[Rfam]
RNA sequence: GGUGACCACGCGGGGUGUCCCAUGCGGGACUGAGAUGGGCCGAGGGCCCGAACCCGUUGAACCUGAUCUCGGUAAUUCGAGCGGAGGAACGGUGGGUGUACUCCCUG
Numbered sequence: 001g002g003u004g005a006c007c008a009c010g011c012g013g014g015g016u017g018u019c020c021c022a023u024g025c026g027g028g029a030c031u032g033a034g035a036u037g038g039g040c041c042g043a044g045g046g047c048c049c050g051a052a053c054c055c056g057u058u059g060a061a062c063c064u065g066a067u068c069u070c071g072g073u074a075a076u077u078c079g080a081g082c083g084g085a086g087g088a089a090c091g092g093u094g095g096g097u098g099u100a101c102u103c104c105c106u107g
Stems, first nucleotide, its partner, number of pairs: 006095004011056004016050001017030005037049005062087003068081004
RNA: TPP riboswitch aptamer (THI element)